[Rfam]
A member of the RNA family "ZMP/ZTP riboswitch aptamer (pfl RNA motif)" from Bacillus sp. FJAT-49736, 86 nucleotides long. The source organism's lineage runs through Bacteria, Bacillota, Bacilli, Caryophanales and Bacillus. A reference for the family is Kim et al. (2015), "An ancient riboswitch class in bacteria regulates purine biosynthesis and one-carbon metabolism", Mol Cell. Pairs were carried over by alignment from the consensus structure, which is taken from published work.
RNA sequence: UUAUAGCACAGUAACUGACGACAUUCGUGGAAUGAACCACAUGGGAGCUGUGUUUUUUAUAGAGUCGGGUCGUCUGGGCAGAGAUA
Dot-bracket structure: ..(.((((((((..(([[[[[.....((((......))))..))..)))))))).).......(((...]]]]]..))).......